The record is a 140-nucleotide sequence from Ricinus communis, which matches "Small nucleolar RNA snoR138" in Rfam. A reference for the family is Chen and Wu (2009), "Mining small RNA sequencing data: a new approach to identify small nucleolar RNAs in Arabidopsis", Nucleic Acids Res. The family has 7 seed sequences and 308 matches in Rfam 15.1. Lineage of the source: Eukaryota > Streptophytina > fabids > Acalyphoideae > Ricinus. It scores 75 bits against the family's covariance model. Rfam classes the family as an H/ACA-box small nucleolar RNA.
RNA sequence: GAUGCCUCCGAAUAACCAGAAUGGUCCAAUGAAACGAUGCCGUUUGGUUCAGACAGAGGCAAAGAACAAUUUGAAUCGGUUUGAGGGUAAGGGAAUUUUUCUUAAGAUCUAUUUCCUUUCCUAGAUGGAUUCAGAUAUUU
Numbered sequence: 001g002a003u004g005c006c007u008c009c010g011a012a013u014a015a016c017c018a019g020a021a022u023g024g025u026c027c028a029a030u031g032a033a034a035c036g037a038u039g040c041c042g043u044u045u046g047g048u049u050c051a052g053a054c055a056g057a058g059g060c061a062a063a064g065a066a067c068a069a070u071u072u073g074a075a076u077c078g079g080u081u082u083g084a085g086g087g088u089a090a091g092g093g094a095a096u097u098u099u100u101c102u103u104a105a106g107a108u109c110u111a112u113u114u115c116c117u118u119u120c121c122u123a124g125a126u127g128g129a130u131u132c133a134g135a136u137a138u139u140u
Base pairs, nucleotide, nucleotide: 003061004060005059006058007057008056014049015048016047017046018045019044020043024040025039072133073132074131075130076129077128080106081105083103084102085101087100112127114125115124
Rfam links the family to the GO terms RNA processing and nucleolus.